[Rfam]
RNA sequence: CACAAGUCAUUACGCUGGUAAUCCUGCCUAGUACGAGAGGAACCGCAGGUUCAGACAAUUGGUUCAUAUGCUUGUUCGAUCCGAUCAAUGGUGUGAUGCUACCAUCUGGCGGCUAAUGGCUGAACGCCUCUAAGUCAGAAACCGUCCCAACGGAAGAUCGGUGAUGAUACUCCGUAGCGUGCUCUUGCUGCUGGGAGGCAGCGAUAAUCGUGCGUUCUGCGCGCGGUGGCUCAGGCCAUGUACGUUGACUGCUGGCCGGCGCGGCUACGGCCCCGCCGGCGUUCGAGGUCGACUAUCGACCCAUCAGUGUGAAAGUGCGGAACCAUCCGUAAACGACCUAGAUUGCGGCCGGCGUGUAGAGCAGCCCCCACACUGCGAGUUGAGACAGCGCCCGGCCGAUUGU
Dot-bracket structure: .....((((((((..(((..(.(((((.................))))).)((((....(((....((((((((.((.....)).)))..)))))...)))...)))).(((....(((((...........)))))....)))..)))...........))))))))............(((.(((..........................................................................................................................))).))).......(.(..(.......)..).....(((((((((..(...((((........))))........)...))).))))))...).
Numbered sequence: 001c002a003c004a005a006g007u008c009a010u011u012a013c014g015c016u017g018g019u020a021a022u023c024c025u026g027c028c029u030a031g032u033a034c035g036a037g038a039g040g041a042a043c044c045g046c047a048g049g050u051u052c053a054g055a056c057a058a059u060u061g062g063u064u065c066a067u068a069u070g071c072u073u074g075u076u077c078g079a080u081c082c083g084a085u086c087a088a089u090g091g092u093g094u095g096a097u098g099c100u101a102c103c104a105u106c107u108g109g110c111g112g113c114u115a116a117u118g119g120c121u122g123a124a125c126g127c128c129u130c131u132a133a134g135u136c137a138g139a140a141a142c143c144g145u146c147c148c149a150a151c152g153g154a155a156g157a158u159c160g161g162u163g164a165u166g167a168u169a170c171u172c173c174g175u176a177g178c179g180u181g182c183u184c185u186u187g188c189u190g191c192u193g194g195g196a197g198g199c200a201g202c203g204a205u206a207a208u209c210g211u212g213c214g215u216u217c218u219g220c221g222c223g224c225g226g227u228g229g230c231u232c233a234g235g236c237c238a239u240g241u242a243c244g245u246u247g248a249c250u251g252c253u254g255g256c257c258g259g260c261g262c263g264g265c266u267a268c269g270g271c272c273c274c275g276c277c278g279g280c281g282u283u284c285g286a287g288g289u290c291g292a293c294u295a296u297c298g299a300c301c302c303a304u305c306a307g308u309g310u311g312a313a314a315g316u317g318c319g320g321a322a323c324c325a326u327c328c329g330u331a332a333a334c335g336a337c338c339u340a341g342a343u344u345g346c347g348g349c350c351g352g353c354g355u356g357u358a359g360a361g362c363a364g365c366c367c368c369c370a371c372a373c374u375g376c377g378a379g380u381u382g383a384g385a386c387a388g389c390g391c392c393c394g395g396c397c398g399a400u401u402g403u
Stems, first nucleotide, its partner, number of pairs: 006168008016149003021051001023049005052108004060101003067095005072088003076084002110144003117137005181316003185312003324402001326340001329337001346398006352391003357385001361376004
Eukaryotic large subunit ribosomal RNA: a 403-nucleotide part of an RNA from Bugula neritina. A search with the family's covariance model found it, with a score of 2694 bits. NCBI's taxonomy places the organism under Eukaryota, Bryozoa, Cheilostomatida, Buguloidea, Bugula. Pairs were carried over by alignment from the consensus structure, which is taken from published work.